[Rfam]
RNA sequence: UGACUGCUUAGAUGUGCGAGGUUGCUGAUACACCAGGUUAAGUUGUUAAUUGGUUAUCGGGUUAUUUGCACGGAGCAAGUCUAUACUAGAUAUAGGCGA
Numbered sequence: 001u002g003a004c005u006g007c008u009u010a011g012a013u014g015u016g017c018g019a020g021g022u023u024g025c026u027g028a029u030a031c032a033c034c035a036g037g038u039u040a041a042g043u044u045g046u047u048a049a050u051u052g053g054u055u056a057u058c059g060g061g062u063u064a065u066u067u068g069c070a071c072g073g074a075g076c077a078a079g080u081c082u083a084u085a086c087u088a089g090a091u092a093u094a095g096g097c098g099a
Stems, first nucleotide, its partner, number of pairs: 014071003018067003021063001025060005080099002086095002
Shown here is a 99-nucleotide RNA sequence from Mycoplasma sp. CAG:877, a member of the family "S10-Clostridia ribosomal protein leader". By type it is a cis-regulatory leader. Pairs were carried over by alignment from the consensus structure, which is taken from published work. The source organism's lineage runs through Bacteria, Mollicutes, Mycoplasmatales, Mycoplasmataceae and Mycoplasma.